[Rfam]
RNA sequence: GCCGGUCCUCGGUAGUGGUCCUCGGCCCGUCAUGGGCGUGCCGGGGGCUUCGAUCGAUGGCCGGC
Numbered sequence: 001g002c003c004g005g006u007c008c009u010c011g012g013u014a015g016u017g018g019u020c021c022u023c024g025g026c027c028c029g030u031c032a033u034g035g036g037c038g039u040g041c042c043g044g045g046g047g048c049u050u051c052g053a054u055c056g057a058u059g060g061c062c063g064g065c
Stems, first nucleotide, its partner, number of pairs: 001065007009057005017049010028038002
RNA: Actino-pnp RNA